[Rfam]
This 78-nucleotide RNA sequence from Parnassius apollo belongs to the Rfam family "Mammalian CPEB3 ribozyme". A search with the family's covariance model found it, with a score of 53 bits. Pairs were carried over by alignment from the consensus structure, which is taken from published work.
RNA sequence: GUAGUCUAGCAAGGGGGUCAUUGUAGAAGCGUGCUCGUCGCGACCUCUGCCAGCCCUUUUCAGGGCUGCAAUUCUACA
Numbered sequence: 001g002u003a004g005u006c007u008a009g010c011a012a013g014g015g016g017g018u019c020a021u022u023g024u025a026g027a028a029g030c031g032u033g034c035u036c037g038u039c040g041c042g043a044c045c046u047c048u049g050c051c052a053g054c055c056c057u058u059u060u061c062a063g064g065g066c067u068g069c070a071a072u073u074c075u076a077c078a
Stems, first nucleotide, its partner, number of pairs: 014047006022078007029041003051068007
Dot-bracket structure: .............[[[[[[..((((((((((.......)))]]]]]]...(((((((....)))))))...)))))))